Bacterial RNase P class A: a 417-nucleotide sequence from Marinicauda salina.

[Rfam]
RNA sequence: UCGGACGGCCGGACGGCCGCUCCCGCCAGGGGUCGAAAGACCGGCGGGAGAGGAAAGUCCGGGCUCCAUGGAGGCAGGGCGCCGGGGAAAUCCCGGCGGGCCGGUUCGCCGGUUCAGGGACAGCGCCGCAGAAAACAGACCGCCGGGACCCGGGCUUCGGCUCCCCGGCAAGGAUGAAACGGUGCGGUAAGAGCGCACCGCCCCGACCGCAAGGAAGGGGGCACGGCAAGCCCCGCCCGGAGCAAGACCGAAUAGGGACGGACGCCGCGGCUUCGGCCGCGGCAGGCGCGCCUCCGCGUUCCGUCCGGGUAGGUCGCACGAGGCGCCGCGCAAGCGGCGUCCCAGAUGAAUGGUCGUCGCGUUCUUUCCCGCGUGGAAAGAACGGCACAGAACCCGGCUUACAGGCCGUCCGACCCU
Numbered sequence: 001u002c003g004g005a006c007g008g009c010c011g012g013a014c015g016g017c018c019g020c021u022c023c024c025g026c027c028a029g030g031g032g033u034c035g036a037a038a039g040a041c042c043g044g045c046g047g048g049a050g051a052g053g054a055a056a057g058u059c060c061g062g063g064c065u066c067c068a069u070g071g072a073g074g075c076a077g078g079g080c081g082c083c084g085g086g087g088a089a090a091u092c093c094c095g096g097c098g099g100g101c102c103g104g105u106u107c108g109c110c111g112g113u114u115c116a117g118g119g120a121c122a123g124c125g126c127c128g129c130a131g132a133a134a135a136c137a138g139a140c141c142g143c144c145g146g147g148a149c150c151c152g153g154g155c156u157u158c159g160g161c162u163c164c165c166c167g168g169c170a171a172g173g174a175u176g177a178a179a180c181g182g183u184g185c186g187g188u189a190a191g192a193g194c195g196c197a198c199c200g201c202c203c204c205g206a207c208c209g210c211a212a213g214g215a216a217g218g219g220g221g222c223a224c225g226g227c228a229a230g231c232c233c234c235g236c237c238c239g240g241a242g243c244a245a246g247a248c249c250g251a252a253u254a255g256g257g258a259c260g261g262a263c264g265c266c267g268c269g270g271c272u273u274c275g276g277c278c279g280c281g282g283c284a285g286g287c288g289c290g291c292c293u294c295c296g297c298g299u300u301c302c303g304u305c306c307g308g309g310u311a312g313g314u315c316g317c318a319c320g321a322g323g324c325g326c327c328g329c330g331c332a333a334g335c336g337g338c339g340u341c342c343c344a345g346a347u348g349a350a351u352g353g354u355c356g357u358c359g360c361g362u363u364c365u366u367u368c369c370c371g372c373g374u375g376g377a378a379a380g381a382a383c384g385g386c387a388c389a390g391a392a393c394c395c396g397g398c399u400u401a402c403a404g405g406c407c408g409u410c411c412g413a414c415c416c417u
Stems, first nucleotide, its partner, number of pairs: 001413010011402001012358007020050008055400003059397005064242004073293002077238005082096005097117001098115007118233002123231002125227003140173002142169005147163002150160003181199006200222001201220004207214002246315004256306006286299005322341008
About the family: Ribonuclease P (RNase P) is a ubiquitous endoribonuclease, found in archaea, bacteria and eukarya as well as chloroplasts and mitochondria. Gene Ontology terms of the family: tRNA processing, ribonuclease P activity and dimeric ribonuclease P complex.